[Rfam]
RNA sequence: GUACUUGGAUCUCCGAGUUUUUGGAAUGCUCCAAUUC
Dot-bracket structure: ..((((((....)))))).(.((((....)))))...
Numbered sequence: 001g002u003a004c005u006u007g008g009a010u011c012u013c014c015g016a017g018u019u020u021u022u023g024g025a026a027u028g029c030u031c032c033a034a035u036u037c
Stems, first nucleotide, its partner, number of pairs: 003018006020034001022033004